[Rfam]
RNA: Iron response element I
RNA sequence: CUGUCUCUUGCUUCAACAGUGUUUGAACAGACCCAG
Numbered sequence: 001c002u003g004u005c006u007c008u009u010g011c012u013u014c015a016a017c018a019g020u021g022u023u024u025g026a027a028c029a030g031a032c033c034c035a036g
Base pairs, nucleotide, nucleotide: 001036002035003034006031007030008029010028012027013026014025015024016023017021